RNA sequence: GGGGGCGAUUCUGGAUUCGACAGGAUUCACGAAACCCAAGGAGCAUGUCGAGGGGCGGUUGGCCUCGUAAAAAGCCGCACCGUUAUAGUUGCAAACGACUCUAACUACUCUCUAGCAGCUUAGGCUAGCUAGCCAUCAACCACACGUUUCGCACGUGGACAGUGGAUUCUGAUGGUCAUAUUACAGUGUGCUAGCGAGGGAACUCCGUCCGGGGGUGAACCGCGAAACAGUACCGGACUCACCAAGUAGCAUCCUGUCUUUCGGAGACUGCUUGGUUAAAUAAAAGAGAGACUAAACAUGUAGUGCCGAGGAUGUAGGCUUUCUGGACGCGGGUUCAAGUCCCGCCGCCUCCACCA
Numbered sequence: 001g002g003g004g005g006c007g008a009u010u011c012u013g014g015a016u017u018c019g020a021c022a023g024g025a026u027u028c029a030c031g032a033a034a035c036c037c038a039a040g041g042a043g044c045a046u047g048u049c050g051a052g053g054g055g056c057g058g059u060u061g062g063c064c065u066c067g068u069a070a071a072a073a074g075c076c077g078c079a080c081c082g083u084u085a086u087a088g089u090u091g092c093a094a095a096c097g098a099c100u101c102u103a104a105c106u107a108c109u110c111u112c113u114a115g116c117a118g119c120u121u122a123g124g125c126u127a128g129c130u131a132g133c134c135a136u137c138a139a140c141c142a143c144a145c146g147u148u149u150c151g152c153a154c155g156u157g158g159a160c161a162g163u164g165g166a167u168u169c170u171g172a173u174g175g176u177c178a179u180a181u182u183a184c185a186g187u188g189u190g191c192u193a194g195c196g197a198g199g200g201a202a203c204u205c206c207g208u209c210c211g212g213g214g215g216u217g218a219a220c221c222g223c224g225a226a227a228c229a230g231u232a233c234c235g236g237a238c239u240c241a242c243c244a245a246g247u248a249g250c251a252u253c254c255u256g257u258c259u260u261u262c263g264g265a266g267a268c269u270g271c272u273u274g275g276u277u278a279a280a281u282a283a284a285a286g287a288g289a290g291a292c293u294a295a296a297c298a299u300g301u302a303g304u305g306c307c308g309a310g311g312a313u314g315u316a317g318g319c320u321u322u323c324u325g326g327a328c329g330c331g332g333g334u335u336c337a338a339g340u341c342c343c344g345c346c347g348c349c350u351c352c353a354c355c356a
Stems, first nucleotide, its partner, number of pairs: 001352007021325005028318001034313001036311002040307002044300005049067005055078006112132005117126003133175006140165004146160001148159001151191006194223003207238005241276009252265003256292007329345005
RNA: transfer-messenger RNA
Organism: Shewanella frigidimarina